About this RNA: The family of this 357-nucleotide part of an RNA from candidate division MSBL1 archaeon SCGC-AAA261D19 is "Archaeal large subunit ribosomal RNA". It scores 2839 bits against the family's covariance model. Pairs were carried over by alignment from the consensus structure, which is taken from published work.
RNA sequence: CGGGAGAUCCCAGGCUAGGGAAAUCGGCAAAUUGGUCCCGUGACUUCGGACGAAGGGAUGCCUGCUUCUUGGAGAAGCAGGUCGCAGAGACCGGGGGAGACCGACUGUUUAAUAAAAACGUAGCCAACCGCGAGUCCGUAAGGAUGAGUACGGUUGGUGAAUCCUGCCCAGUAGCGGCUUGUCAAGCUGGGUUACAACCCAGUGAAGCACCGCCAGACGGCGGGGGUAACUAUAACCCUCUUAAGGUAGCGAAAUGCCUUGCCGCUCAAUUGGCGGCCUGCAUGAACGGAUUAACGAGUCUCCCACUGUCCCAGUCUGGGUCCCGGUGAACCUGCUGGCUGGUGCAGAUGCCAGUGA
Numbered sequence: 001c002g003g004g005a006g007a008u009c010c011c012a013g014g015c016u017a018g019g020g021a022a023a024u025c026g027g028c029a030a031a032u033u034g035g036u037c038c039c040g041u042g043a044c045u046u047c048g049g050a051c052g053a054a055g056g057g058a059u060g061c062c063u064g065c066u067u068c069u070u071g072g073a074g075a076a077g078c079a080g081g082u083c084g085c086a087g088a089g090a091c092c093g094g095g096g097g098a099g100a101c102c103g104a105c106u107g108u109u110u111a112a113u114a115a116a117a118a119c120g121u122a123g124c125c126a127a128c129c130g131c132g133a134g135u136c137c138g139u140a141a142g143g144a145u146g147a148g149u150a151c152g153g154u155u156g157g158u159g160a161a162u163c164c165u166g167c168c169c170a171g172u173a174g175c176g177g178c179u180u181g182u183c184a185a186g187c188u189g190g191g192u193u194a195c196a197a198c199c200c201a202g203u204g205a206a207g208c209a210c211c212g213c214c215a216g217a218c219g220g221c222g223g224g225g226g227u228a229a230c231u232a233u234a235a236c237c238c239u240c241u242u243a244a245g246g247u248a249g250c251g252a253a254a255u256g257c258c259u260u261g262c263c264g265c266u267c268a269a270u271u272g273g274c275g276g277c278c279u280g281c282a283u284g285a286a287c288g289g290a291u292u293a294a295c296g297a298g299u300c301u302c303c304c305a306c307u308g309u310c311c312c313a314g315u316c317u318g319g320g321u322c323c324c325g326g327u328g329a330a331c332c333u334g335c336u337g338g339c340u341g342g343u344g345c346a347g348a349u350g351c352c353a354g355u356g357a
Base pairs, nucleotide, nucleotide: 001325002324003323004322009320010319011318012317013316014315015314016313018311019310020309035059036058037057038056039055044049060082061081062080063079064078065077066076067075068074083087095304096303097302098301099300100299101298102296103295106120107119108118123158124157125156126155127154128153129152130151131148134145135144136143137142161291162290163289164288166221167220168219171218172217174213175212176211177210180209181208182207187202188201189200190199191198222240223239224238225237226236227235241245261277262276263275264274265273266272338355339354340353341352342351
Clan: LSU clan.